RNA: GAIT element
Organism: Bos grunniens
RNA sequence: GUAUGUGAAAGUGUUGAAUAGAAGGCUUACUUUGGAAUGGCUAUACGCGUUAAAAAAAAAAGACUGAAAAUACAC
Dot-bracket structure: ((.(((...(((.........((.((......(((.....)))...)).))...........)))....))).))